RNA sequence: CAGUUAAAACGUCCGUAGUUGAUCACAAGGUAUUCUUCUGCAUAGUAUUUGUGGAGUGUAUCUCGAUACUGUGAGAAAAAUAUGGUUCUCAAAGCGGAUUACGUGAGUAAUUUAGCAUGGGACAUGGUGAAUAUAGGAACAGAUGAUGGCAAUAGUAUUCAGCAGUUAGAGGUGAAAAUCGUUGACCUGCUGAGGACUCUCUGAAGCGAAAGCGAUUGUCAAGUAUGUCUCCGUUAAUAAAGGACUUAAGCUGGAGUAUCGAAGAUGAUUAGAUACCGUCGUAGUUCCAGCUGUAAACUAUGCCGACUAGGUGAGGCCGUCAGGCUGCGCCUUAGGAGAAAUCAAAGUUUUUGGGCUCUGGGGAUAGUAUGGAUGCAAAUCUGAAACUUAAAGAAAU
Dot-bracket structure: (((.......((((...(((...................................................................................................................((((((.((..(((((((((..((((((((...((........))......))))))))..)).......((....)).))))))).)).))).)))...)))...))))....((((((....(...((((.........))))...).))))))..........((((((.(((((.((((....)))).)))))...((....))...)))....))).))).((.......((((....)))).....))........

Microsporidia small subunit ribosomal RNA: a 397-nucleotide part of an RNA from Pseudonosema cristatellae. Clan: SSU clan. It is one of the family's seed sequences. The source organism's lineage runs through Eukaryota, Opisthokonta, Microsporidia, Pseudonosematidae and Pseudonosema.